[Rfam]
RNA sequence: CCAGGAUCACCGUCGAAACCACGUCGAACCGGGGAACCAACCGAAGCAGCACCGGGGUGAAUCCGCGCCAGCGGUAGGGGCCUUCUUCCCGCACCGAACCCGUCAGCUAACCCGGUAGGCGGCCAUAGCGGAAGA
Number, nucleotide and partner (000 for none) at each position: 001c000002c000003a000004g000005g000006a000007u000008c121009a000010c119011c118012g000013u027014c026015g025016a000017a000018a000019c000020c000021a000022c000023g000024u000025c015026g014027a013028a116029c115030c114031g113032g112033g111034g000035a000036a000037c000038c054039a000040a000041c000042c000043g000044a000045a000046g000047c000048a000049g000050c000051a000052c000053c000054g038055g101056g100057g099058u000059g000060a000061a000062u000063c074064c073065g072066c071067g000068c000069c000070a000071g066072c065073g064074g063075u000076a000077g095078g094079g000080g092081c000082c000083u000084u000085c000086u000087u000088c000089c000090c000091g000092c080093a000094c078095c077096g000097a000098a000099c057100c056101c055102g000103u000104c000105a000106g000107c000108u000109a000110a000111c033112c032113c031114g030115g029116u028117a000118g011119g010120c000121g008122g000123c000124c000125a000126u000127a000128g000129c000130g000131g000132a000133a000134g000135a000
RNA: c-di-AMP riboswitch aptamer (ydaO/yuaA leader)
Organism: Actinoplanes nipponensis